About this RNA:
MIR5565 microRNA precursor family: a 107-nucleotide RNA sequence from Miscanthus lutarioriparius. It scores 102 bits against the family's covariance model. Rfam links the family to the GO terms RISC complex and miRNA-mediated post-transcriptional gene silencing. Taxonomically the source falls in Miscanthus (Eukaryota, Streptophytina, Spermatophyta, Liliopsida).
[Rfam]
Nucleotides: 107
Stems, first nucleotide, its partner, number of pairs: 004106008013097002016094008025085008034076009044066003
Number, partner (000 for none) and nucleotide at each position: 001000a002000u003000a004106g005105u006104c007103g008102g009101a010100u011099u012000g013097a014096u015000a016094u017093c018092a019091a020090u021089c022088c023087a024000c025085a026084u027083a028082u029081g030080u031079u032078g033000g034076g035075u036074g037073g038072a039071u040070u041069g042068g043000u044066g045065u046064g047000g048000a049000a050000c051000u052000u053000g054000a055000a056000c057000u058000a059000a060000a061000u062000u063000c064046c065045a066044c067000a068042c069041c070040a071039a072038u073037c074036c075035a076034c077000u078032c079031a080030a081029u082028a083027u084026a085025u086000a087023u088022g089021g090020a091019u092018u093017g094016a095000g096014g097013u098000g099011a100010a101009u102008c103007c104006g105005a106004c107000u